[Rfam]
RNA sequence: GUAUGCUUGGCUCCUCGCACGCCACCAGCAACAGCCAAUCUAAAACAAAAGAUUGGUCUUUGCUUGUGGCAUACAGGGAGCCAGGCAUAA
Numbered sequence: 001g002u003a004u005g006c007u008u009g010g011c012u013c014c015u016c017g018c019a020c021g022c023c024a025c026c027a028g029c030a031a032c033a034g035c036c037a038a039u040c041u042a043a044a045a046c047a048a049a050a051g052a053u054u055g056g057u058c059u060u061u062g063c064u065u066g067u068g069g070c071a072u073a074c075a076g077g078g079a080g081c082c083a084g085g086c087a088u089a090a
Stems, first nucleotide, its partner, number of pairs: 002089005008083007017074001019072001021070004027064003
The record is a 90-nucleotide RNA from Salix koriyanagi, which matches "mir-160 microRNA precursor family" in Rfam.
Pairs were carried over by alignment from the consensus structure, which was predicted with PFOLD.
On this family, see Rhoades et al., Cell 2002: "Prediction of plant microRNA targets".
A search with the family's covariance model found it, with a score of 48 bits.